[Rfam]
RNA sequence: GUGAGCUAGCGAGCAAGUUACUUCAGGUAAUAUAACGAAGAGGAAACUCCUCCCUCACUACGGGCACCUGAAUUAGCGAUAAUUAGAAGGAGACUUCUGGCAACGAAAUAGAAAAGGAUCCAGUUGAGAUCAAAAGCAAUGAUGAUUAGUAAUCUGAGCGAUUUCAAUUUUGGAGUGAAACUGUCGACCUAGGUGGAGAAAGGCCAAACAGAGUUAGGAACCCGUACAUACACUCAGGUAGGCUGCUUAGCUAAAUCUUGCUUAAAACAAAAGGAGGGUUACUACUAGGACAC
Numbered sequence: 001g002u003g004a005g006c007u008a009g010c011g012a013g014c015a016a017g018u019u020a021c022u023u024c025a026g027g028u029a030a031u032a033u034a035a036c037g038a039a040g041a042g043g044a045a046a047c048u049c050c051u052c053c054c055u056c057a058c059u060a061c062g063g064g065c066a067c068c069u070g071a072a073u074u075a076g077c078g079a080u081a082a083u084u085a086g087a088a089g090g091a092g093a094c095u096u097c098u099g100g101c102a103a104c105g106a107a108a109u110a111g112a113a114a115a116g117g118a119u120c121c122a123g124u125u126g127a128g129a130u131c132a133a134a135a136g137c138a139a140u141g142a143u144g145a146u147u148a149g150u151a152a153u154c155u156g157a158g159c160g161a162u163u164u165c166a167a168u169u170u171u172g173g174a175g176u177g178a179a180a181c182u183g184u185c186g187a188c189c190u191a192g193g194u195g196g197a198g199a200a201a202g203g204c205c206a207a208a209c210a211g212a213g214u215u216a217g218g219a220a221c222c223c224g225u226a227c228a229u230a231c232a233c234u235c236a237g238g239u240a241g242g243c244u245g246c247u248u249a250g251c252u253a254a255a256u257c258u259u260g261c262u263u264a265a266a267a268c269a270a271a272a273g274g275a276g277g278g279u280u281a282c283u284a285c286u287a288g289g290a291c292a293c
Base pairs, nucleotide, nucleotide: 001293002292003291006288007287008286009285011282012262013261014260015259016258017257021040022039023038024037045280046279047278049277050276051275052274053273054198055197056196063223064222066194067193068192069191070190071084072083073082074081075080085098086097087096088095089094099189100188104186105185106184119174120173121172122169123168124167125166126165127164128163129162141154142153202244203243204242205241211235212234213233214232